This 74-nucleotide RNA from Chaetomium globosum belongs to the Rfam family "tRNA". The source organism's lineage runs through Eukaryota, Sordariomycetes, Sordariales, Chaetomiaceae and Chaetomium globosum. A search with the family's covariance model found it, with a score of 55 bits.
RNA sequence: GGCCCCAUAGCUCAAUUGGUAGUAGCGUUCGACUCCAGAUCGAAAGGUUAUCCGUUCAAGUCGGGUUGGGGUCA
Numbered sequence: 001g002g003c004c005c006c007a008u009a010g011c012u013c014a015a016u017u018g019g020u021a022g023u024a025g026c027g028u029u030c031g032a033c034u035c036c037a038g039a040u041c042g043a044a045a046g047g048u049u050a051u052c053c054g055u056u057c058a059a060g061u062c063g064g065g066u067u068g069g070g071g072u073c074a
Base pairs, nucleotide, nucleotide: 001073002072003071004070005069006068007067010026011025012024028044029043030042031041032040050066051065052064053063054062
From the family's description: Transfer RNA (tRNA) molecules are approximately 80 nucleotides in length. The family's RNA type in Rfam is transfer RNA.